[Rfam]
This 96-nucleotide RNA from Bdellovibrio sp. NC01 belongs to the Rfam family "Purine riboswitch aptamer".
RNA sequence: UUUGUUUCUGUAAUGGUCCCUGAUAUAUGUUCAAAGUACGGUUGAACGUCUCUACCAGCUGCCAAAUAGUUGACUAUUAGUUAAGCCAUUACAGUU
Numbered sequence: 001u002u003u004g005u006u007u008c009u010g011u012a013a014u015g016g017u018c019c020c021u022g023a024u025a026u027a028u029g030u031u032c033a034a035a036g037u038a039c040g041g042u043u044g045a046a047c048g049u050c051u052c053u054a055c056c057a058g059c060u061g062c063c064a065a066a067u068a069g070u071u072g073a074c075u076a077u078u079a080g081u082u083a084a085g086c087c088a089u090u091a092c093a094g095u096u
Base pairs, nucleotide, nucleotide: 020080021079022078023077024076025075029047030046031045032044033043034042056072057071058070059069060068061067

NCBI's taxonomy places the organism under Bacteria, Bdellovibrionota, Bdellovibrionia, Bdellovibrionales, Bdellovibrio. Rfam's curators write: Riboswitches are metabolite binding domains within certain messenger RNAs that serve as precision sensors for their corresponding targets. Allosteric rearrangement of mRNA structure is mediated by ligand binding, and this results in modulation of gene expression. Rfam links the family to the GO term purine nucleobase biosynthetic process.